[Rfam]
RNA sequence: GCUCACAUGGGGUGAGUUUAUGCGGUCCCCGCCGCGUAGUGGAAUAGAACCCACACAUUAACAUAAAGGAAAAACAAAUG
Dot-bracket structure: ((((((.....)))))).(((((((......)))))))((((........))))..........................
Numbered sequence: 001g002c003u004c005a006c007a008u009g010g011g012g013u014g015a016g017u018u019u020a021u022g023c024g025g026u027c028c029c030c031g032c033c034g035c036g037u038a039g040u041g042g043a044a045u046a047g048a049a050c051c052c053a054c055a056c057a058u059u060a061a062c063a064u065a066a067a068g069g070a071a072a073a074a075c076a077a078a079u080g
Stems, first nucleotide, its partner, number of pairs: 001017006019038007039054004
Rfam assigns this 80-nucleotide RNA sequence to the family "freshwater-2 RNA". The family's RNA type in Rfam is cis-regulatory element. The family's consensus secondary structure is taken from published work.